[Rfam]
The record is a 161-nucleotide RNA sequence from Rhodoplanes sp., which matches "speF leader" in Rfam. Rfam's curators write: This family is a putative regulatory RNA structure that is found upstream of the speF gene encoding ornithine decarboxylase in Agrobacterium tumefaciens and other alpha-proteobacteria. The organism belongs to Rhodoplanes, within Bacteria.

RNA sequence: CUGCCGGUUUCCACCACCGGCUCGGGUCGCCGAAGAGGCUUGUUCAUCAUUGCCGGGCGUGCGGAUCGGGGACUCCCCUUUCCAAUCCAAGGCAGCACGGACGGUCGAAGAGCCGUUUGCGUCGCACGCGUCCCCAUCGCGCGUGGUCGCAGAGGCGUCUC
Numbered sequence: 001c002u003g004c005c006g007g008u009u010u011c012c013a014c015c016a017c018c019g020g021c022u023c024g025g026g027u028c029g030c031c032g033a034a035g036a037g038g039c040u041u042g043u044u045c046a047u048c049a050u051u052g053c054c055g056g057g058c059g060u061g062c063g064g065a066u067c068g069g070g071g072a073c074u075c076c077c078c079u080u081u082c083c084a085a086u087c088c089a090a091g092g093c094a095g096c097a098c099g100g101a102c103g104g105u106c107g108a109a110g111a112g113c114c115g116u117u118u119g120c121g122u123c124g125c126a127c128g129c130g131u132c133c134c135c136a137u138c139g140c141g142c143g144u145g146g147u148c149g150c151a152g153a154g155g156c157g158u159c160u161c
Base pairs, nucleotide, nucleotide: 001026002025003021004020005019006018007017008016037054038053039052061142062141063140087099107125